[Rfam]
RNA sequence: GCUCGUCAGGACCUUGGCUCUAGACUGCUUACUGCUACAGGUGUGCGAGGCACAGUAACAGUCUACAGUCAUGGCCACUGACGUCUG
Numbered sequence: 001g002c003u004c005g006u007c008a009g010g011a012c013c014u015u016g017g018c019u020c021u022a023g024a025c026u027g028c029u030u031a032c033u034g035c036u037a038c039a040g041g042u043g044u045g046c047g048a049g050g051c052a053c054a055g056u057a058a059c060a061g062u063c064u065a066c067a068g069u070c071a072u073g074g075c076c077a078c079u080g081a082c083g084u085c086u087g
Stems, first nucleotide, its partner, number of pairs: 012074002015071004023063005029058005
Shown here is an 87-nucleotide RNA from Ophiophagus hannah, a member of the family "mir-132 microRNA precursor family". The family has 50 seed sequences and 1,023 matches in Rfam 15.1. It is one of the family's seed sequences. Lineage of the source: Eukaryota > Tetrapoda > Amniota > Colubroidea > Ophiophagus. A reference for the family is Chen et al. (2005), "The developmental miRNA profiles of zebrafish as determined by small RNA cloning", Genes Dev. The base pairs follow the family's consensus structure, which was predicted with RNAalifold.